[Rfam]
The record is a 172-nucleotide RNA sequence from Pseudomonas japonica, which matches "Group II catalytic intron D1-D4-3" in Rfam. The family has 406 seed sequences and 4,274 matches in Rfam 15.1.
RNA sequence: AGGAGGGCGACCGACUGUGGGGAGGAAGCGUGGAGCAUAAACCUCGAGCCGAGGUACACGAAUCGCAUUCGAGGCGGAUCCGGUCAGGGCGAGCAGCCAAUGUCCUGCGAAGCCGUUGUGGCCUAGAGGCCGGAUACGUAAAUGCGGCGGUUGUGAGGUGAAGGAUGGUGUU
Dot-bracket structure: ((..((....))..))...........(.......(....(((((((((((...........((((((.....(((.(((((((...(((..((((........))))...)))..............))))))).)))..))))))))))).))))))....).......)